[Rfam]
RNA sequence: CACUUUAAGUUUGAGCACCAAGCCUCAGGCUUAUUGUUUGGUGUUCAACCUUACAGUGAG
Numbered sequence: 001c002a003c004u005u006u007a008a009g010u011u012u013g014a015g016c017a018c019c020a021a022g023c024c025u026c027a028g029g030c031u032u033a034u035u036g037u038u039u040g041g042u043g044u045u046c047a048a049c050c051u052u053a054c055a056g057u058g059a060g
Base pairs, nucleotide, nucleotide: 001058002057003056004055006053007052008051016043017042018041019040020039021038022037023036
A member of the RNA family "mir-971 microRNA precursor family" from Acyrthosiphon pisum, 60 nucleotides long. NCBI's taxonomy places the organism under Eukaryota, Arthropoda, Aphidomorpha, Macrosiphini, Acyrthosiphon. Pairs were carried over by alignment from the consensus structure, which was predicted with RNAalifold. The family has 6 seed sequences and 118 matches in Rfam 15.1. It is one of the family's seed sequences.